[Rfam]
This 335-nucleotide RNA from Firmicutes bacterium CAG:102 belongs to the Rfam family "Bacterial RNase P class A".
Lineage of the source: Bacteria > Bacillati > Bacillota.
Clan: RNaseP clan.
It scores 279 bits against the family's covariance model.
RNA sequence: UGAGUAGGUUGGACAGUCGCGCUCGUAGGAGUGAGGAAAGUCCGGGCUUCGCAGAGCAGGGUGCCGGCUAACGGCCGGUGGAGGCGACUCCAAGGAUAGUGCAACAGAAAUAGACCGCCGAAUGCGUUUCGGUAAGGAUGGAAAGGUGGGGUAAGAGCCCACCGCUGCGGCGGUAACGUCGCGGGCCCCUGUAAACCCCACCCGAAGCAAGACAAACAGAGACCAUGGGGCUGCUCGUUCCGUCUCGAAAAAGUCGCACGAUGCCGUUGGCAACAACGGACCAAGAUAGAUGGCUGUCUGAAAAACAGAACCCGGCUUACAGGCCUGCUCGCGUU
Numbered sequence: 001u002g003a004g005u006a007g008g009u010u011g012g013a014c015a016g017u018c019g020c021g022c023u024c025g026u027a028g029g030a031g032u033g034a035g036g037a038a039a040g041u042c043c044g045g046g047c048u049u050c051g052c053a054g055a056g057c058a059g060g061g062u063g064c065c066g067g068c069u070a071a072c073g074g075c076c077g078g079u080g081g082a083g084g085c086g087a088c089u090c091c092a093a094g095g096a097u098a099g100u101g102c103a104a105c106a107g108a109a110a111u112a113g114a115c116c117g118c119c120g121a122a123u124g125c126g127u128u129u130c131g132g133u134a135a136g137g138a139u140g141g142a143a144a145g146g147u148g149g150g151g152u153a154a155g156a157g158c159c160c161a162c163c164g165c166u167g168c169g170g171c172g173g174u175a176a177c178g179u180c181g182c183g184g185g186c187c188c189c190u191g192u193a194a195a196c197c198c199c200a201c202c203c204g205a206a207g208c209a210a211g212a213c214a215a216a217c218a219g220a221g222a223c224c225a226u227g228g229g230g231c232u233g234c235u236c237g238u239u240c241c242g243u244c245u246c247g248a249a250a251a252a253g254u255c256g257c258a259c260g261a262u263g264c265c266g267u268u269g270g271c272a273a274c275a276a277c278g279g280a281c282c283a284a285g286a287u288a289g290a291u292g293g294c295u296g297u298c299u300g301a302a303a304a305a306c307a308g309a310a311c312c313c314g315g316c317u318u319a320c321a322g323g324c325c326u327g328c329u330c331g332c333g334u335u
Base pairs, nucleotide, nucleotide: 001331002330003329004328005327006326007325008324009323010322011320012298013297014296015295016294017293018292020033021032022031023030024029038318039317040316042315043314044313045312046311047207048206049205050204054236055235056234057233059203060202061201062200063199064078065077066076067075068074079093080091081090082089083088094198095197099196100195101192102191103190115137116136117133118132119131120130121129122128145163146162147161148160149159150158164186165184166183167182168181169180170179171178172177211255212254213253219246220245221244222243223242227241228240229239230238231237264279265278266277267276268275269274